A member of the RNA family "c-di-GMP-I riboswitch aptamer" from Salinisphaera orenii, 92 nucleotides long. It scores 63 bits against the family's covariance model.
RNA sequence: GCAGACCAAGGGCAUCGCCGUCGAAAGACGGCCGCGCAAAACCACGGGUCUAACACGCUGUAACCCAGCGUCAUGGCGGCCGGGUUGCCUCA
Number, nucleotide and partner (000 for none) at each position: 001g000002c000003a000004g000005a000006c000007c000008a000009a000010g000011g000012g037013c036014a000015u000016c000017g032018c031019c030020g029021u028022c027023g000024a000025a000026a000027g022028a021029c020030g019031g018032c017033c000034g000035c000036g013037c012038a000039a000040a086041a085042c084043c083044a000045c082046g081047g080048g077049u076050c075051u000052a000053a000054c000055a071056c070057g069058c068059u067060g066061u000062a000063a000064c000065c000066c060067a059068g058069c057070g056071u055072c000073a000074u000075g050076g049077c048078g000079g000080c047081c046082g045083g043084g042085u041086u040087g000088c000089c000090u000091c000092a000